A member of the RNA family "Vault RNA" from Oryctolagus cuniculus, 103 nucleotides long.
This family of RNAs are found as part of the enigmatic vault ribonucleoprotein complex.
Pairs were carried over by alignment from the consensus structure, which is taken from published work.
RNA sequence: GGGCUGGCUAUAGCUCAGCGGUUCCUUCGACGCAGAAGCUACUUGAAGCUAAGUCAGCAUGCAAGUGCUGGUUCGAGUCCCGCGGGCGCUCCCCAGCCUUUUU
Numbered sequence: 001g002g003g004c005u006g007g008c009u010a011u012a013g014c015u016c017a018g019c020g021g022u023u024c025c026u027u028c029g030a031c032g033c034a035g036a037a038g039c040u041a042c043u044u045g046a047a048g049c050u051a052a053g054u055c056a057g058c059a060u061g062c063a064a065g066u067g068c069u070g071g072u073u074c075g076a077g078u079c080c081c082g083c084g085g086g087c088g089c090u091c092c093c094c095a096g097c098c099u100u101u102u103u
Stems, first nucleotide, its partner, number of pairs: 002098006013087004018083004026077005